[Rfam]
RNA sequence: UGUCCCUUGGGAUCAGGGGUGGGUGGAGCCUAUAUCCAAACAGUCAGGCGACCCACUCAUGAUUUCAGAGGUCA
Numbered sequence: 001u002g003u004c005c006c007u008u009g010g011g012a013u014c015a016g017g018g019g020u021g022g023g024u025g026g027a028g029c030c031u032a033u034a035u036c037c038a039a040a041c042a043g044u045c046a047g048g049c050g051a052c053c054c055a056c057u058c059a060u061g062a063u064u065u066c067a068g069a070g071g072u073c074a
Stems, first nucleotide, its partner, number of pairs: 002073001004071002007068001009066006017058001021054004028049004
The family of this 74-nucleotide RNA from Conger conger is "mir-551 microRNA precursor family". NCBI's taxonomy places the organism under Eukaryota, Opisthokonta, Neopterygii, Congridae, Conger. Gene Ontology terms of the family: miRNA-mediated post-transcriptional gene silencing and RISC complex.